Annotation
Shown here is a 115-nucleotide RNA sequence from Hibiscus syriacus, a member of the family "MIR390 microRNA precursor family". The source organism's lineage runs through Eukaryota, Streptophytina, Embryophyta, Euphyllophyta and Hibiscus. Gene Ontology terms of the family: RISC complex and miRNA-mediated post-transcriptional gene silencing. The family's consensus secondary structure was predicted with WAR.
[Rfam]
RNA sequence: UAGAAGAAUCAGUUAAGCUCAGGAGGGAUAGCGCCAUAGGUGAUCUUCAACCCUUUCGUGUAUGUGUUUUGAUCCUCCUUAGCGCUAUCCAUCCUGAGUUUCAUCGGUUCUUCUU
Numbered sequence: 001u002a003g004a005a006g007a008a009u010c011a012g013u014u015a016a017g018c019u020c021a022g023g024a025g026g027g028a029u030a031g032c033g034c035c036a037u038a039g040g041u042g043a044u045c046u047u048c049a050a051c052c053c054u055u056u057c058g059u060g061u062a063u064g065u066g067u068u069u070u071g072a073u074c075c076u077c078c079u080u081a082g083c084g085c086u087a088u089c090c091a092u093c094c095u096g097a098g099u100u101u102c103a104u105c106g107g108u109u110c111u112u113c114u115u
Stems, first nucleotide, its partner, number of pairs: 010106001016100009026090009